The family of this 373-nucleotide RNA sequence from Pseudomonas taeanensis is "Pseudomonas sRNA CrcZ". The organism belongs to Pseudomonas taeanensis, within Bacteria. Rfam classes the family as a small RNA. On this family, see Livny et al., Nucleic Acids Res 2006: "Identification of 17 Pseudomonas aeruginosa sRNAs and prediction of sRNA-encoding genes in 10 diverse pathogens using the bioinformatic tool sRNAPredict2". A search with the family's covariance model found it, with a score of 230 bits.
RNA sequence: ACAACAAUAAUAAAAUCAGCAAAGAAAUCGACUCGAUUCUGACAUAACAAAAACAACAAGCCAGAUGAGUAGCAAACAGAUUUUUUUGGAGAGGGUGUGCUUUUCCAGGAGUUAACCUGGCGACCAGAGGAAAACAAUAAAACUACCUUGAGGUAGCUGAACUGGUUGAAUCAUCAAGUGACUAUGGCACCACCAGCAUCCAAAAAAAUACGUUUACCUUUGAACCCACCGGGCUCAGAAAAUCUUGUUCGACGAUAGCGGUCACUAAAAACAACAACAGACUGUUUAACAACAAAAACAAAGCAUGCAGCAAUUAUUUGAGGGGAGCUACGGCUCCCCUCAGUGCUUUCUGCUGUCCCUUCUCCCUAUGAGC
Numbered sequence: 001a002c003a004a005c006a007a008u009a010a011u012a013a014a015a016u017c018a019g020c021a022a023a024g025a026a027a028u029c030g031a032c033u034c035g036a037u038u039c040u041g042a043c044a045u046a047a048c049a050a051a052a053a054c055a056a057c058a059a060g061c062c063a064g065a066u067g068a069g070u071a072g073c074a075a076a077c078a079g080a081u082u083u084u085u086u087u088g089g090a091g092a093g094g095g096u097g098u099g100c101u102u103u104u105c106c107a108g109g110a111g112u113u114a115a116c117c118u119g120g121c122g123a124c125c126a127g128a129g130g131a132a133a134a135c136a137a138u139a140a141a142a143c144u145a146c147c148u149u150g151a152g153g154u155a156g157c158u159g160a161a162c163u164g165g166u167u168g169a170a171u172c173a174u175c176a177a178g179u180g181a182c183u184a185u186g187g188c189a190c191c192a193c194c195a196g197c198a199u200c201c202a203a204a205a206a207a208a209u210a211c212g213u214u215u216a217c218c219u220u221u222g223a224a225c226c227c228a229c230c231g232g233g234c235u236c237a238g239a240a241a242a243u244c245u246u247g248u249u250c251g252a253c254g255a256u257a258g259c260g261g262u263c264a265c266u267a268a269a270a271a272c273a274a275c276a277a278c279a280g281a282c283u284g285u286u287u288a289a290c291a292a293c294a295a296a297a298a299c300a301a302a303g304c305a306u307g308c309a310g311c312a313a314u315u316a317u318u319u320g321a322g323g324g325g326a327g328c329u330a331c332g333g334c335u336c337c338c339c340u341c342a343g344u345g346c347u348u349u350c351u352g353c354u355g356u357c358c359c360u361u362c363u364c365c366c367u368a369u370g371a372g373c
Stems, first nucleotide, its partner, number of pairs: 034069001038065003084205005098198003121168007143156005225233003253355002256352003259284004303346004320341009
Dot-bracket structure: .................................(...(((......................)))...)..............(((((.........(((....................(((((((...............(((((....))))).....)))))))...........................)))..)))))...................(((...)))...................((.(((((((..................))))..................((((.............(((((((((....))))))))).))))...))).))..................